[Rfam]
RNA sequence: UUACGUUCUCAGGGCGGGGUGAAAGUCCCCACCGGCGGUAAUGGCGAAUGCCUAGCCCGCGAGCGCCCGGUACGGCUCACGCCAUCCGGGGUCCAGCAGAUCCGGUGCGAUUCCGGAGCCGACGGUCAUAGUCCGGAUGAAGAGAGAACGGGA
Dot-bracket structure: ...(((((((......(((.......))).[[((((((................[[))))..((...............................))...(((((.......)))))]])).(((.....]])))........)))))))...
This 153-nucleotide RNA from Pseudomonas mangiferae belongs to the Rfam family "FMN riboswitch aptamer (RFN element)". The RFN element is a highly conserved domain that is found frequently in the 5'-untranslated regions of prokaryotic mRNAs that encode for flavin mononucleotide (FMN) biosynthesis and transport proteins.